Shown here is a 132-nucleotide RNA from Coturnix japonica, a member of the family "Small nucleolar RNA SNORA15". The family's consensus secondary structure was predicted with RNAfold. The family's RNA type in Rfam is H/ACA-box small nucleolar RNA. Rfam describes the family as follows. ACA15 is a member of the H/ACA class of snoRNA that guide the sites of modification of uridines to pseudouridines. It scores 72 bits against the family's covariance model. A reference for the family is Huttenhofer et al. (2001), "RNomics: an experimental approach that identifies 201 candidates for novel, small, non-messenger RNAs in mouse", EMBO J.
[Rfam]
RNA sequence: GCAUGGACGAAUUCUGCUCUAGCUUUCUACAGUAGCUAUUGCAGUCAGACACCAUGCCAGAACCAAUUCCUGUUUUACACUGUGGCAUGCUUUUUAUAUGCGAGUGGGCAUGCCCUUGGAAGUGGGAUACAA
Numbered sequence: 001g002c003a004u005g006g007a008c009g010a011a012u013u014c015u016g017c018u019c020u021a022g023c024u025u026u027c028u029a030c031a032g033u034a035g036c037u038a039u040u041g042c043a044g045u046c047a048g049a050c051a052c053c054a055u056g057c058c059a060g061a062a063c064c065a066a067u068u069c070c071u072g073u074u075u076u077a078c079a080c081u082g083u084g085g086c087a088u089g090c091u092u093u094u095u096a097u098a099u100g101c102g103a104g105u106g107g108g109c110a111u112g113c114c115c116u117u118g119g120a121a122g123u124g125g126g127a128u129a130c131a132a
Base pairs, nucleotide, nucleotide: 001057002056003055004054005053006052014044015043016042017041070125071124072123073122074121075120076119080118082116084114085113086112087111088110089109090108091107092106